[Rfam]
RNA sequence: CGAGUUGGCCGGGCGGCCGCGUGUCGUAGCGAUACGGCCCGAGGAAAGUCCGGACUUCAUAGAGCAGGGUGAUUGCUAACGGCAAUCCGAGGUGACUCGCGGGAAAGUGCCACAGAAAACAGACCGCCACCCUCGCGGUGGUAAGGGUGAAACGGUGCGGUAAGAGCGCACCAGCAUCCCGGGUGACCGGGGUGGCUAGGCAAACCCCACCCGAAGCAAGGCCAAGAAGGCCGCACCUGGUGCGGUCGCGCAGGCGCUCGAGGGCUGCUCGCCCGAGCCUGCGGGUAGGCCGCUCGAGGCACCCGGCAACGGUGUGUCCAGAUGGAUGGUCGCCGCCCGGUCUCGCCGACCGGGCACAGAAUCCGGCUUACAGGCCAGCUCGUCCG
Numbered sequence: 001c002g003a004g005u006u007g008g009c010c011g012g013g014c015g016g017c018c019g020c021g022u023g024u025c026g027u028a029g030c031g032a033u034a035c036g037g038c039c040c041g042a043g044g045a046a047a048g049u050c051c052g053g054a055c056u057u058c059a060u061a062g063a064g065c066a067g068g069g070u071g072a073u074u075g076c077u078a079a080c081g082g083c084a085a086u087c088c089g090a091g092g093u094g095a096c097u098c099g100c101g102g103g104a105a106a107g108u109g110c111c112a113c114a115g116a117a118a119a120c121a122g123a124c125c126g127c128c129a130c131c132c133u134c135g136c137g138g139u140g141g142u143a144a145g146g147g148u149g150a151a152a153c154g155g156u157g158c159g160g161u162a163a164g165a166g167c168g169c170a171c172c173a174g175c176a177u178c179c180c181g182g183g184u185g186a187c188c189g190g191g192g193u194g195g196c197u198a199g200g201c202a203a204a205c206c207c208c209a210c211c212c213g214a215a216g217c218a219a220g221g222c223c224a225a226g227a228a229g230g231c232c233g234c235a236c237c238u239g240g241u242g243c244g245g246u247c248g249c250g251c252a253g254g255c256g257c258u259c260g261a262g263g264g265c266u267g268c269u270c271g272c273c274c275g276a277g278c279c280u281g282c283g284g285g286u287a288g289g290c291c292g293c294u295c296g297a298g299g300c301a302c303c304c305g306g307c308a309a310c311g312g313u314g315u316g317u318c319c320a321g322a323u324g325g326a327u328g329g330u331c332g333c334c335g336c337c338c339g340g341u342c343u344c345g346c347c348g349a350c351c352g353g354g355c356a357c358a359g360a361a362u363c364c365g366g367c368u369u370a371c372a373g374g375c376c377a378g379c380u381c382g383u384c385c386g
Base pairs, nucleotide, nucleotide: 001382002381003380004379005378006377007376008375009374010373011371012334013333014332015331016330017329018328020041021040023038024037025036026035027034028033046369047368048367050366051365052364053363054362055216056215057214058213062270063269064268065267067212068211069210070209071208072086073085074084075083076082087101088099089098090097091096102207103206107205108204109201110200111199124146125145126142127141128140129139130138131137154172155171156170157169158168159167174196175194176193177192178191179190180189181188182187220291221290222289223288250282251281252280253279254278255277262274263273264272265271298318299317300316301315302314303312304311305310

Description:
Shown here is a 386-nucleotide RNA sequence from Mycobacterium manitobense, a member of the family "Bacterial RNase P class A". About the family: Ribonuclease P (RNase P) is a ubiquitous endoribonuclease, found in archaea, bacteria and eukarya as well as chloroplasts and mitochondria. It scores 297 bits against the family's covariance model. The family's RNA type in Rfam is ribozyme. Pairs were carried over by alignment from the consensus structure, which is taken from published work. Its family is annotated with tRNA processing, dimeric ribonuclease P complex and ribonuclease P activity in the Gene Ontology.